[Rfam]
RNA sequence: UAUGCCGUUUCGCCAAACCCCGUCGGCGGCCCGCGACCGUUCAGCUUCCCGACGGGGGCGGAGGAACCACCACCGGUGACUUAGUCACCUUGGGGUGAAGCAUGCAGUGACCCAUAGCCGUCUCGGCCGUGGGUUGGGCGUGCCGGGCAGACCCUCGCCCGAAUCCGACAGCUAACUUCGCAGGCGUCGAGAGGAAUC
Numbered sequence: 001u002a003u004g005c006c007g008u009u010u011c012g013c014c015a016a017a018c019c020c021c022g023u024c025g026g027c028g029g030c031c032c033g034c035g036a037c038c039g040u041u042c043a044g045c046u047u048c049c050c051g052a053c054g055g056g057g058g059c060g061g062a063g064g065a066a067c068c069a070c071c072a073c074c075g076g077u078g079a080c081u082u083a084g085u086c087a088c089c090u091u092g093g094g095g096u097g098a099a100g101c102a103u104g105c106a107g108u109g110a111c112c113c114a115u116a117g118c119c120g121u122c123u124c125g126g127c128c129g130u131g132g133g134u135u136g137g138g139c140g141u142g143c144c145g146g147g148c149a150g151a152c153c154c155u156c157g158c159c160c161g162a163a164u165c166c167g168a169c170a171g172c173u174a175a176c177u178u179c180g181c182a183g184g185c186g187u188c189g190a191g192a193g194g195a196a197u198c
Base pairs, nucleotide, nucleotide: 011186012185013184014183018057019056020055021054022053023052024051025050026049058181059180060179061178062177063176068092069091093166094165095164101142102141103140104139145160146159147158148157

The record is a 198-nucleotide RNA from Neomicrococcus aestuarii, which matches "c-di-AMP riboswitch aptamer (ydaO/yuaA leader)" in Rfam. Rfam links the family to the GO terms regulation of gene expression and cyclic-di-AMP binding. NCBI's taxonomy places the organism under Bacteria, Bacillati, Micrococcales, Micrococcaceae, Neomicrococcus. A search with the family's covariance model found it, with a score of 71 bits.